[Rfam]
RNA sequence: UGAGAUUGCUAUGAGGAUUAAAAAGCUCCCUCUUCUGAGUAUGGUUGAGGAUAUCUGCUGGCAGAAUCGAACCAUAUAACCAUUAGCCAUCACUGAGCAA
Numbered sequence: 001u002g003a004g005a006u007u008g009c010u011a012u013g014a015g016g017a018u019u020a021a022a023a024a025g026c027u028c029c030c031u032c033u034u035c036u037g038a039g040u041a042u043g044g045u046u047g048a049g050g051a052u053a054u055c056u057g058c059u060g061g062c063a064g065a066a067u068c069g070a071a072c073c074a075u076a077u078a079a080c081c082a083u084u085a086g087c088c089a090u091c092a093c094u095g096a097g098c099a100a
Stems, first nucleotide, its partner, number of pairs: 006100004

Rfam assigns this 100-nucleotide RNA from Olea europaea to the family "Small nucleolar RNA R30/Z108". The organism belongs to Olea europaea, within Eukaryota. The base pairs follow the family's consensus structure, which was predicted with PFOLD. The family's RNA type in Rfam is C/D-box small nucleolar RNA. Its family is annotated with RNA processing and nucleolus in the Gene Ontology. Rfam describes the family as follows. snoR30 is a C/D box small nucleolar RNA which acts as a methylation guide for 18S ribosomal RNA in plants. The family is grouped with related families in Rfam's "SNORD100 clan". A search with the family's covariance model found it, with a score of 72 bits. For this family Rfam cites "Experimental RNomics. Identification of 140 Candidates for Small Non-Messenger RNAs in the Plant Arabidopsis thaliana" (Marker et al., Curr Biol, 2002).